[Rfam]
RNA sequence: UAGAGGAUCGCUGGAUGCAGCGGUUCAUCGAUCUGUUCCUUAAUCCCAAUGAUUGAGAGCGGUCGGGAACAAGAAUGGGUCGAUAAACCUCUGCAUCCAGCGAUCUCAAC
Number, nucleotide and partner (000 for none) at each position: 001u000002a000003g000004a000005g000006g000007a000008u000009c000010g000011c000012u000013g098014g097015a096016u000017g000018c093019a092020g091021c000022g089023g088024u087025u086026c000027a084028u083029c082030g081031a080032u079033c078034u000035g000036u075037u074038c073039c000040u000041u000042a000043a000044u000045c000046c000047c000048a000049a000050u000051g000052a000053u000054u000055g000056a000057g000058a000059g000060c000061g000062g000063u000064c000065g000066g000067g000068a000069a000070c000071a000072a000073g038074a037075a036076u000077g000078g033079g032080u031081c030082g029083a028084u027085a000086a025087a024088c023089c022090u000091c020092u019093g018094c000095a000096u015097c014098c013099a000100g000101c000102g000103a000104u000105c000106u000107c000108a000109a000110c000